[Rfam]
RNA sequence: UGUUUUCGAGGUGGGAACGGCUUCCCCACGCGCCAUUUGCAAGAAUGGUCAGUAGUCGAAAGACCAAGAGAUGCGGACGUUAGCGCCCGCCGAAAACA
Numbered sequence: 001u002g003u004u005u006u007c008g009a010g011g012u013g014g015g016a017a018c019g020g021c022u023u024c025c026c027c028a029c030g031c032g033c034c035a036u037u038u039g040c041a042a043g044a045a046u047g048g049u050c051a052g053u054a055g056u057c058g059a060a061a062g063a064c065c066a067a068g069a070g071a072u073g074c075g076g077a078c079g080u081u082a083g084c085g086c087c088c089g090c091c092g093a094a095a096a097c098a
Stems, first nucleotide, its partner, number of pairs: 001098008011029005020084003031068001032049007073090004
Dot-bracket structure: ((((((((..(((((....[[[..))))).((((((((....)))))))..................)....((((.....]]]..))))))))))))